[Rfam]
A member of the RNA family "Manganese Mn2+ riboswitch aptamer (yybP-ykoY)" from Vibrio genomosp. F10, 127 nucleotides long.
The literature on the family includes a 2001 paper in Curr Biol by Argaman et al., "Novel small RNA-encoding genes in the intergenic regions of Escherichia coli".
A search with the family's covariance model found it, with a score of 49 bits.
NCBI's taxonomy places the organism under Bacteria, Pseudomonadati, Pseudomonadota, Vibrionales, Vibrio.
RNA sequence: CUCAUCGUCUUUGGGGAGUAGCCUGCUUAUUCAGCUUGAAUAAGUUCGUUCGUCAACAUAAUUGGUGCAAAAUCACCAUGGCGUUCGAGACCUUUGUAUCAAUCAGACUUUUCUGGGUACAAGGUUU
Numbered sequence: 001c002u003c004a005u006c007g008u009c010u011u012u013g014g015g016g017a018g019u020a021g022c023c024u025g026c027u028u029a030u031u032c033a034g035c036u037u038g039a040a041u042a043a044g045u046u047c048g049u050u051c052g053u054c055a056a057c058a059u060a061a062u063u064g065g066u067g068c069a070a071a072a073u074c075a076c077c078a079u080g081g082c083g084u085u086c087g088a089g090a091c092c093u094u095u096g097u098a099u100c101a102a103u104c105a106g107a108c109u110u111u112u113c114u115g116g117g118u119a120c121a122a123g124g125u126u127u
Base pairs, nucleotide, nucleotide: 026044027043028042046088047087048086051083052082053081054080055079063078064077065076066075067074089126090125091124092123093122094121